[Rfam]
RNA sequence: AAAUAAAAGGAGCAAUAACCCCCUUCUUGUUCUAGCAAGAGGGCGGUAUUGUUCC
Number, nucleotide and partner (000 for none) at each position: 001a000002a000003a000004u000005a000006a000007a000008a000009g055010g054011a053012g052013c051014a050015a049016u048017a047018a000019c000020c000021c000022c043023c000024u041025u040026c039027u038028u037029g036030u000031u000032c000033u000034a000035g000036c029037a028038a027039g026040a025041g024042g000043g022044c000045g000046g000047u017048a016049u015050u014051g013052u012053u011054c010055c009

Shown here is a 55-nucleotide RNA sequence from Lobelia yuccoides, a member of the family "Plastid-psbA-4 3UTR RNA". NCBI's taxonomy places the organism under Eukaryota, Embryophyta, Magnoliopsida, campanulids, Lobelia. About the family: Plastid psbA-4 is a non-coding RNA (ncRNA) present in plastids. It was identified in inverted repeat sequences in the 3 prime untranslate region (3UTR) of photosystem II quinone-binding protein (psbA). Rfam classes the family as a cis-regulatory element. The family's consensus secondary structure was predicted with LocARNA. The literature on the family includes a 2023 paper in Plant Commun by Richter et al., "Retrograde signaling in plants: A critical review focusing on the GUN pathway and beyond".